Annotation:
A member of the RNA family "MIR9563 microRNA precursor family" from Brassica oleracea, 128 nucleotides long. The family's consensus secondary structure was predicted with RNAalifold. Gene Ontology terms of the family: RISC complex and miRNA-mediated post-transcriptional gene silencing. Lineage of the source: Eukaryota > Tracheophyta > Gunneridae > rosids > Brassica oleracea. Rfam 15.1 lists 5,832 matches to the family in 9 species. A search with the family's covariance model found it, with a score of 102 bits.
[Rfam]
RNA sequence: AGAAUAUAAGAACCCGUCUCUCAACUUUUAACUAAAAAAACUAAGAACUGACUCUUAAAUAAGAGUUUUAAAAACCGGUUCUUAACUUUUAACUAAGUUAAAAAUUAAGAGACGGGUUCUUAUACUCC
Number, nucleotide and partner (000 for none) at each position: 001a000002g127003a126004a000005u124006a123007u122008a121009a120010g119011a118012a117013c116014c115015c114016g113017u112018c111019u110020c109021u108022c000023a106024a105025c000026u103027u102028u101029u100030a099031a098032c097033u096034a000035a094036a000037a000038a090039a089040a000041c000042u084043a083044a082045g081046a080047a079048c000049u000050g000051a000052c000053u000054c000055u000056u000057a000058a000059a000060u000061a000062a000063g000064a000065g000066u000067u000068u000069u000070a000071a000072a000073a000074a000075c000076c000077g000078g000079u047080u046081c045082u044083u043084a042085a000086c000087u000088u000089u039090u038091a000092a000093c000094u035095a000096a033097g032098u031099u030100a029101a028102a027103a026104a000105u024106u023107a000108a021109g020110a019111g018112a017113c016114g015115g014116g013117u012118u011119c010120u009121u008122a007123u006124a005125c000126u003127c002128c000